Shown here is a 132-nucleotide RNA sequence from Salmo trutta, a member of the family "Small nucleolar RNA SNORA49". Gene Ontology terms of the family: RNA processing and nucleolus. The base pairs follow the family's consensus structure, which was predicted with RNAalifold.

RNA sequence: CUUCCCCUCCCUUACUCCAAUCACUCUGUACCCAGUGGGGUGGUCUGGCAUUGACAGGGGAUACAGCACUGUGUCCCUCACCUCUCAUCUAGGACUAUUCUCCUAUAUGAGGCUUGUGAGAGAGCUGACAAU
Numbered sequence: 001c002u003u004c005c006c007c008u009c010c011c012u013u014a015c016u017c018c019a020a021u022c023a024c025u026c027u028g029u030a031c032c033c034a035g036u037g038g039g040g041u042g043g044u045c046u047g048g049c050a051u052u053g054a055c056a057g058g059g060g061a062u063a064c065a066g067c068a069c070u071g072u073g074u075c076c077c078u079c080a081c082c083u084c085u086c087a088u089c090u091a092g093g094a095c096u097a098u099u100c101u102c103c104u105a106u107a108u109g110a111g112g113c114u115u116g117u118g119a120g121a122g123a124g125c126u127g128a129c130a131a132u
Stems, first nucleotide, its partner, number of pairs: 003061006011053001017048003022043001023041005073125002076122001083111001085109001090105004